[Rfam]
RNA sequence: UGACCCUUUUAAGCCGAGGGUCACCUAGCCAACUGACGUUGUUAGUGAACCUGAUUAUUGUUCACACUGAUUAUCAGCCAGUCACACUAUUUUUGUGACUGGCUUUUUUUAU
Numbered sequence: 001u002g003a004c005c006c007u008u009u010u011a012a013g014c015c016g017a018g019g020g021u022c023a024c025c026u027a028g029c030c031a032a033c034u035g036a037c038g039u040u041g042u043u044a045g046u047g048a049a050c051c052u053g054a055u056u057a058u059u060g061u062u063c064a065c066a067c068u069g070a071u072u073a074u075c076a077g078c079c080a081g082u083c084a085c086a087c088u089a090u091u092u093u094u095g096u097g098a099c100u101g102g103c104u105u106u107u108u109u110u111a112u
Base pairs, nucleotide, nucleotide: 001023002022003021004020005019006018039076041074042073045065046064047063048062049061050060078102079101080100081099082098083097084096085095
Rfam assigns this 112-nucleotide RNA from Vibrio aerogenes to the family "Qrr RNA". It is annotated as a small RNA. The organism belongs to Vibrio aerogenes, within Bacteria. Its family is annotated with quorum sensing in the Gene Ontology. Pairs were carried over by alignment from the consensus structure, which is taken from published work. The literature on the family includes a 2015 paper in Cell by Feng et al., "A qrr noncoding RNA deploys four different regulatory mechanisms to optimize quorum-sensing dynamics". This family represents a set of small RNAs (the Qrr RNAs) that are thought to be involved in the regulation of quorum sensing in Vibrio species.